[Rfam]
Rfam assigns this 67-nucleotide RNA sequence from Macaca fascicularis to the family "mir-1255 microRNA precursor family".
RNA sequence: UCUUACGGAUAAGCAAAGAAGGUGGUUUGAGCCUCAGGAAACCACUUUCUUUGCUCAUCUGUAAGGA
Numbered sequence: 001u002c003u004u005a006c007g008g009a010u011a012a013g014c015a016a017a018g019a020a021g022g023u024g025g026u027u028u029g030a031g032c033c034u035c036a037g038g039a040a041a042c043c044a045c046u047u048u049c050u051u052u053g054c055u056c057a058u059c060u061g062u063a064a065g066g067a
Base pairs, nucleotide, nucleotide: 001066002065003064004063005062007060008059009058010057012055013054014053015052016051017050018049019048020047021046022045023044024043025042026041027040028039

The organism belongs to Macaca, within Eukaryota. A reference for the family is Brameier (2010), "Genome-wide comparative analysis of microRNAs in three non-human primates", BMC Res Notes. A search with the family's covariance model found it, with a score of 79 bits. Rfam links the family to the GO terms miRNA-mediated post-transcriptional gene silencing and RISC complex.